About this RNA
mir-544 microRNA precursor family: a 96-nucleotide sequence from Spermophilus dauricus. Rfam links the family to the GO terms RISC complex and miRNA-mediated post-transcriptional gene silencing. The family's consensus secondary structure was predicted with RNAalifold. A reference for the family is Chiang et al. (2010), "Mammalian microRNAs: experimental evaluation of novel and previously annotated genes", Genes Dev.
RNA sequence: AUCACCUGGGAAUCUUAUUAAAGUGCAGAUUCAGGUUCAGUGUUUGGGGUGCAGCCUGAGAUUCUGCAUUUCUAAUGAGUUCCCAGCUGGAGCUGA
Number, nucleotide and partner (000 for none) at each position: 001a000002u000003c089004a088005c000006c000007u000008g000009g083010g082011a081012a000013u000014c079015u078016u077017a076018u075019u074020a073021a071022a070023g069024u000025g067026c066027a065028g064029a063030u000031u061032c060033a000034g000035g000036u000037u000038c000039a000040g000041u000042g000043u000044u000045u000046g000047g000048g000049g000050u000051g000052c000053a000054g000055c000056c000057u000058g000059a000060g032061a031062u000063u029064c028065u027066g026067c025068a000069u023070u022071u021072c000073u020074a019075a018076u017077g016078a015079g014080u000081u011082c010083c009084c000085a000086g000087c000088u004089g003090g000091a000092g000093c000094u000095g000096a000